[Rfam]
RNA sequence: UGGAAUAUGGCUCAGCCGGUAGAGCACUUGUCUAGCAUGCAAGAAGCCCUGGGUUCGAUCCCCAGUGCUGCAU
Numbered sequence: 001u002g003g004a005a006u007a008u009g010g011c012u013c014a015g016c017c018g019g020u021a022g023a024g025c026a027c028u029u030g031u032c033u034a035g036c037a038u039g040c041a042a043g044a045a046g047c048c049c050u051g052g053g054u055u056c057g058a059u060c061c062c063c064a065g066u067g068c069u070g071c072a073u
Stems, first nucleotide, its partner, number of pairs: 001072002004069001006067002010025004027043005049065005